[Rfam]
RNA sequence: AACAUUUGGCAGAGAUGUUAAAUGCCUCAAUCAGAAGUCAGCAGCGGUCGUAGUACUGCAUUUUUCGGAUGCAGAAAGGAC
Numbered sequence: 001a002a003c004a005u006u007u008g009g010c011a012g013a014g015a016u017g018u019u020a021a022a023u024g025c026c027u028c029a030a031u032c033a034g035a036a037g038u039c040a041g042c043a044g045c046g047g048u049c050g051u052a053g054u055a056c057u058g059c060a061u062u063u064u065u066c067g068g069a070u071g072c073a074g075a076a077a078g079g080a081c
Base pairs, nucleotide, nucleotide: 004023005022006021007020008019009018010017011016039044047081048080049079056074057073058072059071060070061069
Group II catalytic intron D1-D4-1: an 81-nucleotide RNA sequence from Pedobacter sp. Leaf216. A reference for the family is Bonen and Vogel (2001), "The ins and outs of group II introns", Trends Genet. The pairing is the family consensus, mapped onto this sequence. Rfam's curators write: Group II introns are found in rRNA, tRNA and mRNA of organelles in fungi, plants and protists, and also in mRNA in bacteria.